The family of this 128-nucleotide sequence from Hibiscus syriacus is "MIR396 microRNA precursor family".
RNA sequence: CUUCGUAUUCUUCCACAGCUUUCUUGAACUGCAACUUCGCCUUAGAUCGUUGGUUUAUUUUCUUCUUGUUGUAGGUGCUUCCAUGGAGGCAGUAUACGGUUCAAAAAAGCUGUGGGAAGAUACAGACA
Numbered sequence: 001c002u003u004c005g006u007a008u009u010c011u012u013c014c015a016c017a018g019c020u021u022u023c024u025u026g027a028a029c030u031g032c033a034a035c036u037u038c039g040c041c042u043u044a045g046a047u048c049g050u051u052g053g054u055u056u057a058u059u060u061u062c063u064u065c066u067u068g069u070u071g072u073a074g075g076u077g078c079u080u081c082c083a084u085g086g087a088g089g090c091a092g093u094a095u096a097c098g099g100u101u102c103a104a105a106a107a108a109g110c111u112g113u114g115g116g117a118a119g120a121u122a123c124a125g126a127c128a
Stems, first nucleotide, its partner, number of pairs: 003125001005123003013115003017111006024104004029099003033095001
A search with the family's covariance model found it, with a score of 81 bits. Rfam links the family to the GO terms RISC complex and miRNA-mediated post-transcriptional gene silencing. The family's consensus secondary structure was predicted with WAR.